[Rfam]
Nucleotides: 115
Base pairs, nucleotide, nucleotide: 002110003109004108005107006106007105008104010103011102014099016094017093018092019091020090021089043077044076045075047071048070
Number, partner (000 for none) and nucleotide at each position: 001000c002110g003109c004108u005107g006106g007105u008104c009000c010103g011102a012000a013000g014099g015000u016094a017093g018092u019091g020090a021089g022000u023000u024000a025000u026000c027000u028000c029000a030000c031000u032000u033000g034000a035000c036000u037000g038000u039000u040000c041000a042000u043077a044076g045075u046000c047071a048070g049000u050000u051000a052000c053000a054000g055000a056000u057000u058000g059000a060000a061000c062000u063000a064000c065000u066000u067000g068000u069000u070048c071047u072000a073000c074000u075045a076044c077043u078000u079000a080000a081000c082000c083000c084000c085000c086000c087000u088000c089021c090020u091019c092018a093017c094016u095000a096000c097000a098000u099014c100000a101000c102011u103010u104008g105007a106006c107005u108004a109003g110002u111000c112000u113000u114000u115000a
Rfam assigns this 115-nucleotide sequence from Propithecus coquereli to the family "Y RNA". The family's consensus secondary structure is taken from published work. Y RNAs are components of the Ro ribonucleoprotein particle (Ro RNP), in association with Ro60 and La proteins. NCBI's taxonomy places the organism under Eukaryota, Sarcopterygii, Amniota, Mammalia, Propithecus. By type it is a non-coding RNA gene.